Nucleotides: 183
Base pairs, nucleotide, nucleotide: 003075004074005073006072008070009069010068015064016063017062018061019059020058021057022056024055025054026049027048028047030045032043033042034041118178119177120176121175122174123173124172125171126170128168129167134162135161136160138158139157140156141155
Number, partner (000 for none) and nucleotide at each position: 001000c002000u003075g004074g005073g006072c007000u008070a009069g010068g011000a012000a013000a014000u015064g016063g017062u018061u019059g020058c021057u022056g023000u024055g025054u026049g027048g028047c029000u030045g031000g032043g033042c034041c035000u036000c037000c038000c039000g040000g041034g042033g043032u044000c045030c046000u047028g048027c049026u050000u051000u052000a053000u054025a055024c056022c057021a058020g059019c060000u061018a062017g063016c064015c065000u066000g067000a068010c069009u070008u071000u072006g073005c074004c075003c076000u077000a078000g079000a080000u081000u082000a083000a084000g085000a086000a087000a088000a089000g090000g091000u092000g093000g094000c095000a096000c097000g098000u099000u100000c101000c102000u103000u104000u105000u106000a107000g108000g109000g110000g111000u112000c113000c114000g115000c116000c117000u118178u119177a120176u121175g122174c123173a124172g125171u126170a127000a128168c129167a130000g131000g132000u133000g134162u135161g136160a137000g138158c139157a140156u141155u142000u143000u144000u145000a146000c147000a148000g149000g150000a151000a152000c153000c154000u155141g156140a157139u158138g159000g160136u161135c162134a163000u164000g165000u166000a167129u168128g169000a170126u171125a172124c173123u174122g175121c176120a177119u178118a179000c180000a181000g182000a183000u
Shown here is a 183-nucleotide sequence from Python bivittatus, a member of the family "Small Cajal body specific RNA 16". scaRNAs are a specific class of small nuclear RNAs which localise to the Cajal bodies and guide the modification of RNA polymerase II transcribed spliceosomal RNAs U1, U2, U4, U5 and U12. ACA47 belongs to the H/ACA box class of guide RNAs as it has the predicted hairpin-hinge-hairpin-tail structure, the conserved H/ACA-box motifs and is found associated with GAR1. ACA47 is predicted to guide the pseudouridylation of residue U5 of the U1 spliceosomal snRNA. It scores 121 bits against the family's covariance model. Pairs were carried over by alignment from the consensus structure, which was predicted with RNAfold.